[Rfam]
RNA sequence: GUGAAGUAUUUCACAAACACAUAUACCCCUUUGUUUGAACGUGAAAAUUUCUCCCAUCCCCUGUAAUGCCAAUAAAGGCGUUACAAAAAAGACCCAAUCAUUUGAUUGGGUCUUUUUU
Dot-bracket structure: ..(((((...((((...((.(((........))).))...))))..)))))...............(..(.........)..)....(((((((((((......)))))))))))...